[Rfam]
RNA sequence: AUAGUGCAGCUGCAGCUGCAGCUGCAGCUGCAGCUGCAGCUGCAGCUGCAGCUGCAGCUGCAGCUGCAGCUGCAGCUGCAGCUGCAGCUGCAGCUGCAGCUGCAGCUGCAGCUGCAGCUGCAGCUGCAGCUGCAGCUGCAGCUGCAGCUGCAGCUGCAGCUGCAGCUGCAGCUGCAGCUGCAGCUGCAGCUGCAGCUGCAGCUGCAGCUGCAGCUGCAGCUGCAGCUGCAGCUGCAGCUGCAGCUGCAGCUGCAG
Numbered sequence: 001a002u003a004g005u006g007c008a009g010c011u012g013c014a015g016c017u018g019c020a021g022c023u024g025c026a027g028c029u030g031c032a033g034c035u036g037c038a039g040c041u042g043c044a045g046c047u048g049c050a051g052c053u054g055c056a057g058c059u060g061c062a063g064c065u066g067c068a069g070c071u072g073c074a075g076c077u078g079c080a081g082c083u084g085c086a087g088c089u090g091c092a093g094c095u096g097c098a099g100c101u102g103c104a105g106c107u108g109c110a111g112c113u114g115c116a117g118c119u120g121c122a123g124c125u126g127c128a129g130c131u132g133c134a135g136c137u138g139c140a141g142c143u144g145c146a147g148c149u150g151c152a153g154c155u156g157c158a159g160c161u162g163c164a165g166c167u168g169c170a171g172c173u174g175c176a177g178c179u180g181c182a183g184c185u186g187c188a189g190c191u192g193c194a195g196c197u198g199c200a201g202c203u204g205c206a207g208c209u210g211c212a213g214c215u216g217c218a219g220c221u222g223c224a225g226c227u228g229c230a231g232c233u234g235c236a237g238c239u240g241c242a243g244c245u246g247c248a249g250c251u252g253c254a255g
Base pairs, nucleotide, nucleotide: 006253007252008251009250010249012247013246014245017242018241019240020239021226022225023224024223025222026221027220028219031216032215033214034213035212036211037210054067055066056065057064058063068107069106070105071104072103076099077098078097080095081094082093083092084091108205109204111202112201113200114199115198116197117196118195120193121192122191123190124189125188127186128185129184130183132181133180134179135178136177138145139144150175151174156169157168158167159166160165231238232237
The family of this 255-nucleotide RNA sequence from Astyanax mexicanus is "isrG Hfq binding RNA". It scores 149 bits against the family's covariance model. Lineage of the source: Eukaryota > Actinopteri > Characiformes > Acestrorhamphinae > Astyanax.